[Rfam]
RNA sequence: UGGUCGGUGAUGACGUGACCACUGCUCAAUCUGAGUUCUUAGAACCAGGUGAUGGAGUGUGGCUGAGAAUGGACUGAGACCG
Number, nucleotide and partner (000 for none) at each position: 001u000002g081003g080004u079005c078006g000007g000008u000009g000010a000011u000012g000013a000014c000015g000016u000017g000018a000019c000020c000021a000022c000023u000024g000025c000026u000027c000028a000029a000030u000031c000032u000033g000034a000035g000036u000037u000038c048039u047040u000041a000042g000043a000044a000045c000046c000047a039048g038049g000050u000051g000052a000053u000054g000055g000056a000057g000058u000059g000060u000061g000062g000063c000064u000065g000066a000067g000068a000069a000070u000071g000072g000073a000074c000075u000076g000077a000078g005079a004080c003081c002082g000